[Rfam]
RNA: permuted transfer-messenger RNA
RNA sequence: GGCGAUAAAUGGUUUUUCAUAAUAGGUGUUUUGGACCCGAAGGCGGAAUUCGGCGCCUCCACCGUUAGUAUGGGGGCGAAUUAGUAUCGACAGGCAUUAAAGGUCUAACUUUUGCUCGGUUGAGUGAUCCCGUGAUUCACAACACUUUUUAUAAGUGCAAACGAUAAUUUCGAAGCUGAGCCUGCAAGUCUUGCAGUAGCUGCUUAG
Numbered sequence: 001g002g003c004g005a006u007a008a009a010u011g012g013u014u015u016u017u018c019a020u021a022a023u024a025g026g027u028g029u030u031u032u033g034g035a036c037c038c039g040a041a042g043g044c045g046g047a048a049u050u051c052g053g054c055g056c057c058u059c060c061a062c063c064g065u066u067a068g069u070a071u072g073g074g075g076g077c078g079a080a081u082u083a084g085u086a087u088c089g090a091c092a093g094g095c096a097u098u099a100a101a102g103g104u105c106u107a108a109c110u111u112u113u114g115c116u117c118g119g120u121u122g123a124g125u126g127a128u129c130c131c132g133u134g135a136u137u138c139a140c141a142a143c144a145c146u147u148u149u150u151a152u153a154a155g156u157g158c159a160a161a162c163g164a165u166a167a168u169u170u171c172g173a174a175g176c177u178g179a180g181c182c183u184g185c186a187a188g189u190c191u192u193g194c195a196g197u198a199g200c201u202g203c204u205u206a207g
Stems, first nucleotide, its partner, number of pairs: 001116005018103001027096003031093003037053005054078007117132003